[Rfam]
RNA: tRNA
Organism: Thermogladius calderae
RNA sequence: CCCGCCGUAGCUCAGCGGCAGAGCGCCCGGCUGUAGGGGUUACCCGCCCACCAAACUACCCGCCCUGGGGUUGGAUGAGGGUGGGUCGGCAGUUACCGGGUGGUCGGGGGUUCAAGUCCCCCCGGCGGGA
Numbered sequence: 001c002c003c004g005c006c007g008u009a010g011c012u013c014a015g016c017g018g019c020a021g022a023g024c025g026c027c028c029g030g031c032u033g034u035a036g037g038g039g040u041u042a043c044c045c046g047c048c049c050a051c052c053a054a055a056c057u058a059c060c061c062g063c064c065c066u067g068g069g070g071u072u073g074g075a076u077g078a079g080g081g082u083g084g085g086u087c088g089g090c091a092g093u094u095a096c097c098g099g100g101u102g103g104u105c106g107g108g109g110g111u112u113c114a115a116g117u118c119c120c121c122c123c124g125g126c127g128g129g130a
Stems, first nucleotide, its partner, number of pairs: 001129007010024004026100005106122005